Record summary: The record is a 359-nucleotide part of an RNA from Candidatus Syntropharchaeum butanivorans, which matches "Archaeal small subunit ribosomal RNA" in Rfam. Lineage of the source: Archaea > Halobacteriota > Candidatus Syntropharchaeia > Candidatus Syntropharchaeales > Candidatus Syntropharchaeum. For this family Rfam cites "Crystal structure of the ribosome at 5.5 A resolution" (Yusupov et al., Science, 2001). The family is grouped with related families in Rfam's "SSU clan". It scores 1564 bits against the family's covariance model.

RNA sequence: AGUCUAAAGCGUCCGUAGCCGGUCUGAAAAGUCCCUUGGGAAAUCCUACAGCUUAACUGUCGGGCUUCCAAGGGAUACUUUCAGACUUGAGACCGGGAGAGGUUGGAGGUACUUCAGGAGUAGGAGUGAAAUCCUGUGAUACCUGGGGGACCACCUGUGGCGAAGGCGUCCAACUGGAACGGGUCUGACGGUGAGGGACGAAAGCUAGGGGCGCGAACCGGAUUAGAUACCCGGGUAGUCCUAGCCGUAAACGAUGUGGGCUAGGUGUCAGCCACACUGCGAGUGUGGCUGGUGCCGUAGGGAAGCCGUGAAGCCCACCACUUGGGAAGUACGGCCGCAAGGCUGAAACUUAAAGGAAU
Numbered sequence: 001a002g003u004c005u006a007a008a009g010c011g012u013c014c015g016u017a018g019c020c021g022g023u024c025u026g027a028a029a030a031g032u033c034c035c036u037u038g039g040g041a042a043a044u045c046c047u048a049c050a051g052c053u054u055a056a057c058u059g060u061c062g063g064g065c066u067u068c069c070a071a072g073g074g075a076u077a078c079u080u081u082c083a084g085a086c087u088u089g090a091g092a093c094c095g096g097g098a099g100a101g102g103u104u105g106g107a108g109g110u111a112c113u114u115c116a117g118g119a120g121u122a123g124g125a126g127u128g129a130a131a132u133c134c135u136g137u138g139a140u141a142c143c144u145g146g147g148g149g150a151c152c153a154c155c156u157g158u159g160g161c162g163a164a165g166g167c168g169u170c171c172a173a174c175u176g177g178a179a180c181g182g183g184u185c186u187g188a189c190g191g192u193g194a195g196g197g198a199c200g201a202a203a204g205c206u207a208g209g210g211g212c213g214c215g216a217a218c219c220g221g222a223u224u225a226g227a228u229a230c231c232c233g234g235g236u237a238g239u240c241c242u243a244g245c246c247g248u249a250a251a252c253g254a255u256g257u258g259g260g261c262u263a264g265g266u267g268u269c270a271g272c273c274a275c276a277c278u279g280c281g282a283g284u285g286u287g288g289c290u291g292g293u294g295c296c297g298u299a300g301g302g303a304a305g306c307c308g309u310g311a312a313g314c315c316c317a318c319c320a321c322u323u324g325g326g327a328a329g330u331a332c333g334g335c336c337g338c339a340a341g342g343c344u345g346a347a348a349c350u351u352a353a354a355g356g357a358a359u
Stems, first nucleotide, its partner, number of pairs: 001322003009319001011199004016193001018192003022086007030079002032075009045063002048060004090186003093182003101175007108152002112148007123134003160167002204245006213239002218234004256318006264296014300307002324351003333344004